[Rfam]
RNA: Molybdenum/Tungsten riboswitch aptamer (Moco RNA motif)
Organism: Vibrio maritimus
RNA sequence: UAAUUGCCAUAACUCCGAGCUCACGACGCUAAGUCGGCGGGACUUUCUCCUUGAAUUAGGAUGUCCAUCUAGAUAAGCGUGUUGAGCCAGUGACAGAAGGUCACAAGGCUUGAUUGGAAAUGAUCACGCCUCCCGUGUUUGGAAAGGUGUUCCGUGGCGCAACAA
Numbered sequence: 001u002a003a004u005u006g007c008c009a010u011a012a013c014u015c016c017g018a019g020c021u022c023a024c025g026a027c028g029c030u031a032a033g034u035c036g037g038c039g040g041g042a043c044u045u046u047c048u049c050c051u052u053g054a055a056u057u058a059g060g061a062u063g064u065c066c067a068u069c070u071a072g073a074u075a076a077g078c079g080u081g082u083u084g085a086g087c088c089a090g091u092g093a094c095a096g097a098a099g100g101u102c103a104c105a106a107g108g109c110u111u112g113a114u115u116g117g118a119a120a121u122g123a124u125c126a127c128g129c130c131u132c133c134c135g136u137g138u139u140u141g142g143a144a145a146g147g148u149g150u151u152c153c154g155u156g157g158c159g160c161a162a163c164a165a
Stems, first nucleotide, its partner, number of pairs: 011151003015147002019087005026080004033074003090104005106131004111126006132142002